[Rfam]
RNA sequence: GGCACAGUUUUCGCUAAGCAAUCCUUACCGGUAACCAACGGCGGUUGCCCCAUCUACGACAGAGACGUCGC
Numbered sequence: 001g002g003c004a005c006a007g008u009u010u011u012c013g014c015u016a017a018g019c020a021a022u023c024c025u026u027a028c029c030g031g032u033a034a035c036c037a038a039c040g041g042c043g044g045u046u047g048c049c050c051c052a053u054c055u056a057c058g059a060c061a062g063a064g065a066c067g068u069c070g071c
Base pairs, nucleotide, nucleotide: 030049031048032047033046034045035044036043
About this RNA:
narK RNA: a 71-nucleotide RNA sequence. The family's consensus secondary structure is taken from published work.